[Rfam]
RNA sequence: GGGCACACGGUGGAUGCCUUGGCAUCAGGAGCCGAAGAAGGACGUAGGAAUCUGCGAUAAGCCUGGGGGAGUUGAUAACCGAGCGUUGAUCCCAGGAUGUCCGAAUGGGGAAACCCCGCCCGGCGCGCGAGUGACCGGGUGACCCGCAUCUGAACACAUAGGGUGCGUGGAGGGAACGUGGGGAAGUGAAACAUCUCAGUACCCACAGGAAGAGAAAACAACAGUGAUUCCGUUAGUAGUGGCGAGCGAACGCGGAAGAGGCUAAACCAGUGGUGUGUGAUAGCCGGCGGGCGUUGCAUCACUGGGGUUGCGGGACUUUCCGUACCGAUUCUGCCGGAUUGGUGAAGUGAGUGCAGAUGCAUAGGUGAACGGGUUUGAAAGCCCGGCCGUAGAGGGUGUUAGCCCCGUAACCGGAAUGUAUGCUGCCGCUUGGAGAGGAUCCCAAGUAGCACGGGGCCCGAGAAAUCCCGUGCGAAUCUGCCAGGACCACCUGGUAAGCCUAAAUACUCCCUGAUGACCGAUAGCGGACAAGUACCGUGAGGGAAAGGUGAAAAGUACCCCGGGAGGGGAGUGAAACAGUACCUGAAACCGUGUGCCUAC
Numbered sequence: 001g002g003g004c005a006c007a008c009g010g011u012g013g014a015u016g017c018c019u020u021g022g023c024a025u026c027a028g029g030a031g032c033c034g035a036a037g038a039a040g041g042a043c044g045u046a047g048g049a050a051u052c053u054g055c056g057a058u059a060a061g062c063c064u065g066g067g068g069g070a071g072u073u074g075a076u077a078a079c080c081g082a083g084c085g086u087u088g089a090u091c092c093c094a095g096g097a098u099g100u101c102c103g104a105a106u107g108g109g110g111a112a113a114c115c116c117c118g119c120c121c122g123g124c125g126c127g128c129g130a131g132u133g134a135c136c137g138g139g140u141g142a143c144c145c146g147c148a149u150c151u152g153a154a155c156a157c158a159u160a161g162g163g164u165g166c167g168u169g170g171a172g173g174g175a176a177c178g179u180g181g182g183g184a185a186g187u188g189a190a191a192c193a194u195c196u197c198a199g200u201a202c203c204c205a206c207a208g209g210a211a212g213a214g215a216a217a218a219c220a221a222c223a224g225u226g227a228u229u230c231c232g233u234u235a236g237u238a239g240u241g242g243c244g245a246g247c248g249a250a251c252g253c254g255g256a257a258g259a260g261g262c263u264a265a266a267c268c269a270g271u272g273g274u275g276u277g278u279g280a281u282a283g284c285c286g287g288c289g290g291g292c293g294u295u296g297c298a299u300c301a302c303u304g305g306g307g308u309u310g311c312g313g314g315a316c317u318u319u320c321c322g323u324a325c326c327g328a329u330u331c332u333g334c335c336g337g338a339u340u341g342g343u344g345a346a347g348u349g350a351g352u353g354c355a356g357a358u359g360c361a362u363a364g365g366u367g368a369a370c371g372g373g374u375u376u377g378a379a380a381g382c383c384c385g386g387c388c389g390u391a392g393a394g395g396g397u398g399u400u401a402g403c404c405c406c407g408u409a410a411c412c413g414g415a416a417u418g419u420a421u422g423c424u425g426c427c428g429c430u431u432g433g434a435g436a437g438g439a440u441c442c443c444a445a446g447u448a449g450c451a452c453g454g455g456g457c458c459c460g461a462g463a464a465a466u467c468c469c470g471u472g473c474g475a476a477u478c479u480g481c482c483a484g485g486a487c488c489a490c491c492u493g494g495u496a497a498g499c500c501u502a503a504a505u506a507c508u509c510c511c512u513g514a515u516g517a518c519c520g521a522u523a524g525c526g527g528a529c530a531a532g533u534a535c536c537g538u539g540a541g542g543g544a545a546a547g548g549u550g551a552a553a554a555g556u557a558c559c560c561c562g563g564g565a566g567g568g569g570a571g572u573g574a575a576a577c578a579g580u581a582c583c584u585g586a587a588a589c590c591g592u593g594u595g596c597c598u599a600c
Stems, first nucleotide, its partner, number of pairs: 001598010016583001017548002021519002023516007030508002032173002040102003043056003062096007071084003107116003117141007143170002145167007177208001178206005188195002218225002228504001229256005239247002259501004267305011312443003316437005350430003353426004357421006364412003370385005388392001394406003449473008480495005535542002558569004